[Rfam]
RNA: drz-agam-2-2 ribozyme
Organism: Anopheles stephensi
RNA sequence: AGCAAUACUUCACUGGUAAGGUAUGGAUCCGAAGCCUCUUCAAGGUUAAAAUAGACUCUCCAAACCCCGCUUCGACUCAAUACGUCCCCGGCGUACAGAACGGUAACAUGUCUCUCCAAAUAUCUGAGCUUGGGAAUACGGGGAAACCUAACCCUUUUAGAAGGUGGAUGAUAUGCCUAAUUGAGCAGG
Numbered sequence: 001a002g003c004a005a006u007a008c009u010u011c012a013c014u015g016g017u018a019a020g021g022u023a024u025g026g027a028u029c030c031g032a033a034g035c036c037u038c039u040u041c042a043a044g045g046u047u048a049a050a051a052u053a054g055a056c057u058c059u060c061c062a063a064a065c066c067c068c069g070c071u072u073c074g075a076c077u078c079a080a081u082a083c084g085u086c087c088c089c090g091g092c093g094u095a096c097a098g099a100a101c102g103g104u105a106a107c108a109u110g111u112c113u114c115u116c117c118a119a120a121u122a123u124c125u126g127a128g129c130u131u132g133g134g135a136a137u138a139c140g141g142g143g144a145a146a147c148c149u150a151a152c153c154c155u156u157u158u159a160g161a162a163g164g165u166g167g168a169u170g171a172u173a174u175g176c177c178u179a180a181u182u183g184a185g186c187a188g189g
Stems, first nucleotide, its partner, number of pairs: 014098001016096002020067002022064001024062004030054001071189002074186001076185006082094003086103002107175006116167002122165004130151005153160001